[Rfam]
RNA sequence: UUCCGAUUAUAAGUAGUAGUGCCGCAGGUAACUGGAGAUUGAUUACCUACUGCCUCCUGCUUAAAAUUGGAA
Numbered sequence: 001u002u003c004c005g006a007u008u009a010u011a012a013g014u015a016g017u018a019g020u021g022c023c024g025c026a027g028g029u030a031a032c033u034g035g036a037g038a039u040u041g042a043u044u045a046c047c048u049a050c051u052g053c054c055u056c057c058u059g060c061u062u063a064a065a066a067u068u069g070g071a072a
Base pairs, nucleotide, nucleotide: 001072002071003070004069005068006067007066010063011062012061013060014059015058016057018055019054024050026048027047028046029045030044
mir-252 microRNA precursor family: a 72-nucleotide sequence from Caenorhabditis japonica. Clan: mir-252 microRNA precursor family. NCBI's taxonomy places the organism under Eukaryota, Metazoa, Ecdysozoa, Peloderinae, Caenorhabditis. The match comes from Rfam's covariance-model search (64 bits). The family's consensus secondary structure was predicted with RNAalifold. Its family is annotated with miRNA-mediated post-transcriptional gene silencing and RISC complex in the Gene Ontology.